The record is a 140-nucleotide RNA from Phtheirospermum japonicum, which matches "Small nucleolar RNA Z247" in Rfam.
A reference for the family is Chen et al. (2003), "The high diversity of snoRNAs in plants: identification and comparative study of 120 snoRNA genes from Oryza sativa", Nucleic Acids Res.
[Rfam]
RNA sequence: AUGAUUGAAGAUUUUGAUUAGUUGCUCCAUGCUCUAACUGGUUUGGUCAGUGAAUAUGAUCCUGUAGUAGUUACAAUUACUUCAAGCCAUGAAAAAUGGAGUUUUGAGGAUGAUAGUGGUCCAUUGUUGAGCUUUCAAUC
Dot-bracket structure: ...(((((...............................................................................(.((((.........)))).)..........................))))).

Its family is annotated with nucleolus and RNA processing in the Gene Ontology.